Rfam assigns this 170-nucleotide RNA from Vagococcus vulneris to the family "M-box riboswitch aptamer (ykoK leader)". The literature on the family includes a 2007 paper in Cell by Dann CE 3rd et al., "Structure and mechanism of a metal-sensing regulatory RNA". Rfam describes the family as follows. M-box riboswitch, also know as ykoK leader is described as a metaloregulatory RNA that sense divalent metals and function as a genetic control element of genes related to divalent metal transport in bacteria. It was first reported upstream of the B.subtilis ykoK gene and genes with related functions in other bacteria. The source organism's lineage runs through Bacteria, Bacillati, Bacillota, Enterococcaceae and Vagococcus.
[Rfam]
RNA sequence: UAAAUAGAUUGUUAGGUGAGGCUCCUAUACAAACAUAGGCUACUGCCCAAAAAUGUCGAGAGACGCCAAUGGGUAUAACAGGAAUUGUCGGAAUAAGGCUUUUCAUAAGGUAGCUAAAGCAUCAGCUUUUACGUUGUAUAGUGCUAAAACUCAACGAAUAAAUCAAAACA
Numbered sequence: 001u002a003a004a005u006a007g008a009u010u011g012u013u014a015g016g017u018g019a020g021g022c023u024c025c026u027a028u029a030c031a032a033a034c035a036u037a038g039g040c041u042a043c044u045g046c047c048c049a050a051a052a053a054u055g056u057c058g059a060g061a062g063a064c065g066c067c068a069a070u071g072g073g074u075a076u077a078a079c080a081g082g083a084a085u086u087g088u089c090g091g092a093a094u095a096a097g098g099c100u101u102u103u104c105a106u107a108a109g110g111u112a113g114c115u116a117a118a119g120c121a122u123c124a125g126c127u128u129u130u131a132c133g134u135u136g137u138a139u140a141g142u143g144c145u146a147a148a149a150c151u152c153a154a155c156g157a158a159u160a161a162a163u164c165a166a167a168a169c170a
Stems, first nucleotide, its partner, number of pairs: 005166001007164004011155002013096001015151003020145003025141008039114005045074005054065004082104003087099003116129003